[Rfam]
Background:
The record is a 187-nucleotide RNA sequence from Phaseolus vulgaris, which matches "MIR159 microRNA precursor family" in Rfam. Pairs were carried over by alignment from the consensus structure, which was predicted with WAR. A search with the family's covariance model found it, with a score of 88 bits.
RNA sequence: AAACGCAAUUUGGAGUUUCCUUCACUCCAAUUAAGAAAAGAUAUGAUGGUAUGCCUCUGCUGCUCGUUCACGGAUACCUAUGGUUUCGUAACAACAUGUGUUCGAAGUCAAGGGUUUGCAUGAACUAGGAGAUGAGUUACCUUGAUCUUUUGGCGUUGGGGUGAAGGGAGCUCCAAAUGGUUUCACA
Numbered sequence: 001a002a003a004c005g006c007a008a009u010u011u012g013g014a015g016u017u018u019c020c021u022u023c024a025c026u027c028c029a030a031u032u033a034a035g036a037a038a039a040g041a042u043a044u045g046a047u048g049g050u051a052u053g054c055c056u057c058u059g060c061u062g063c064u065c066g067u068u069c070a071c072g073g074a075u076a077c078c079u080a081u082g083g084u085u086u087c088g089u090a091a092c093a094a095c096a097u098g099u100g101u102u103c104g105a106a107g108u109c110a111a112g113g114g115u116u117u118g119c120a121u122g123a124a125c126u127a128g129g130a131g132a133u134g135a136g137u138u139a140c141c142u143u144g145a146u147c148u149u150u151u152g153g154c155g156u157u158g159g160g161g162u163g164a165a166g167g168g169a170g171c172u173c174c175a176a177a178u179g180g181u182u183u184c185a186c187a
Stems, first nucleotide, its partner, number of pairs: 013173008023163007036150001060131002063128002069122002072119001077114001
Dot-bracket structure: ............((((((((..(((((((......(.......................((.((....((.(....(....................................)....).))....)).))..................)......)))))))..))))))))..............